[Rfam]
RNA sequence: CGGGUUGCGGUGGCGGGUCCGCGCGCCUAUAUUCAUCCUGUUCGGGCUUGCCCGGGCUAUGGACAUAAACGCGCAUGUAAUAAGCGGAUCGGACCCGGGGGCGGUACCCGGCGGCUCCACCAAAACCCUUCGUUGGGGGAACAUGGGGCCGAAACAGGAUCGACGAACGUCUAAAGAUGUUUGCUUUGUCUCGGUGAGCUACCACCGAUAUCGGUGCAAAUUGUACAGUUGCCAACGACAACCGUGCUCCGGUCGCUCUGGCUGCGUAAGCAGCUCGGGUAACCGAAACCUAAGCCCUGUCGCCUAGCAGCGUCAGGCGGGGCCCGCAGGAGCCUGGCAACAGAAUCCUGCACU
Numbered sequence: 001c002g003g004g005u006u007g008c009g010g011u012g013g014c015g016g017g018u019c020c021g022c023g024c025g026c027c028u029a030u031a032u033u034c035a036u037c038c039u040g041u042u043c044g045g046g047c048u049u050g051c052c053c054g055g056g057c058u059a060u061g062g063a064c065a066u067a068a069a070c071g072c073g074c075a076u077g078u079a080a081u082a083a084g085c086g087g088a089u090c091g092g093a094c095c096c097g098g099g100g101g102c103g104g105u106a107c108c109c110g111g112c113g114g115c116u117c118c119a120c121c122a123a124a125a126c127c128c129u130u131c132g133u134u135g136g137g138g139g140a141a142c143a144u145g146g147g148g149c150c151g152a153a154a155c156a157g158g159a160u161c162g163a164c165g166a167a168c169g170u171c172u173a174a175a176g177a178u179g180u181u182u183g184c185u186u187u188g189u190c191u192c193g194g195u196g197a198g199c200u201a202c203c204a205c206c207g208a209u210a211u212c213g214g215u216g217c218a219a220a221u222u223g224u225a226c227a228g229u230u231g232c233c234a235a236c237g238a239c240a241a242c243c244g245u246g247c248u249c250c251g252g253u254c255g256c257u258c259u260g261g262c263u264g265c266g267u268a269a270g271c272a273g274c275u276c277g278g279g280u281a282a283c284c285g286a287a288a289c290c291u292a293a294g295c296c297c298u299g300u301c302g303c304c305u306a307g308c309a310g311c312g313u314c315a316g317g318c319g320g321g322g323c324c325c326g327c328a329g330g331a332g333c334c335u336g337g338c339a340a341c342a343g344a345a346u347c348c349u350g351c352a353c354u
Stems, first nucleotide, its partner, number of pairs: 040057007061191005071184002073180004085169002089166003095111005112151007192207004198217002201215003320335004326351006
RNA: Alphaproteobacteria transfer-messenger RNA